[Rfam]
RNA: drz-agam-2-2 ribozyme
Organism: Anopheles gambiae
Nucleotides: 189
Base pairs, nucleotide, nucleotide: 008101009100010099011098021067022066023063024062025061026060027059029055030054072188073187076185077184078183079182081180082094083093084092087102107174108173109172110171111170113168114167115166116165121164122163123162124161129150130149131148133146134145152159153158
Number, partner (000 for none) and nucleotide at each position: 001000a002000g003000c004000a005000a006000u007000g008101g009100u010099u011098c012000a013000c014000c015000g016000a017000u018000a019000c020000a021067g022066g023063g024062u025061g026060g027059a028000u029055c030054c031000g032000a033000a034000u035000c036000a037000u038000c039000u040000a041000g042000a043000a044000g045000g046000u047000u048000a049000a050000c051000a052000u053000a054030g055029g056000c057000u058000c059027u060026c061025c062024a063023u064000c065000c066022c067021c068000u069000a070000c071000u072188c073187c074000u075000a076185c077184u078183c079182a080000c081180u082094a083093c084092g085000a086000c087102u088000c089000c090000g091000u092084c093083g094082u095000a096000c097000a098011g099010a100009a101008c102087g103000c104000u105000a106000a107174u108173a109172u110171g111170u112000c113168g114167c115166u116165c117000a118000a119000u120000u121164a122163u123162c124161c125000a126000a127000a128000c129150u130149u131148g132000a133146g134145u135000a136000u137000a138000c139000g140000g141000g142000g143000a144000a145134a146133c147000a148131c149130a150129a151000g152159c153158c154000c155000u156000u157000g158153g159152g160000c161124g162123g163122a164121u165116g166115g167114g168113u169000u170111g171110c172109a173108u174107g175000g176000a177000u178000a179000a180081a181000u182079u183078g184077a185076g186000u187073g188072g189000u